The family of this 128-nucleotide RNA from Penelope pileata is "Small nucleolar RNA SNORA57". Rfam describes the family as follows. U99 belongs to the H/ACA class of snoRNAs which are thought to guide the sites of modification of uridines to pseudouridines, the target for this family is unknown. A reference for the family is Vitali et al. (2003), "Identification of 13 novel human modification guide RNAs", Nucleic Acids Res. The family's consensus secondary structure was predicted with PFOLD. By type it is an H/ACA-box small nucleolar RNA. Rfam 15.1 lists 1,736 matches to the family in 530 species.
RNA sequence: CCUCCGGUUCUUGGCAGGCCGGGCCUCCCGUGCCCGGCGCUGUAUGGGCGGAGGCAGAGCAGCGCGGCGCGAUGUCUUCGGUGCCCGCGGCCCCUCCGCGGGUUCUGCCCUCGCGCGUCGCCACACGG
Numbered sequence: 001c002c003u004c005c006g007g008u009u010c011u012u013g014g015c016a017g018g019c020c021g022g023g024c025c026u027c028c029c030g031u032g033c034c035c036g037g038c039g040c041u042g043u044a045u046g047g048g049c050g051g052a053g054g055c056a057g058a059g060c061a062g063c064g065c066g067g068c069g070c071g072a073u074g075u076c077u078u079c080g081g082u083g084c085c086c087g088c089g090g091c092c093c094c095u096c097c098g099c100g101g102g103u104u105c106u107g108c109c110c111u112c113g114c115g116c117g118u119c120g121c122c123a124c125a126c127g128g
Stems, first nucleotide, its partner, number of pairs: 001054005015042003018038002021035004065120006084102007